[Rfam]
RNA sequence: CGGAGCAGUCUCGCUCCGGUUCAGAUUCCGGUACCUGACACGGCCGGACCUA
Numbered sequence: 001c002g003g004a005g006c007a008g009u010c011u012c013g014c015u016c017c018g019g020u021u022c023a024g025a026u027u028c029c030g031g032u033a034c035c036u037g038a039c040a041c042g043g044c045c046g047g048a049c050c051u052a
Stems, first nucleotide, its partner, number of pairs: 001018006023051002027048006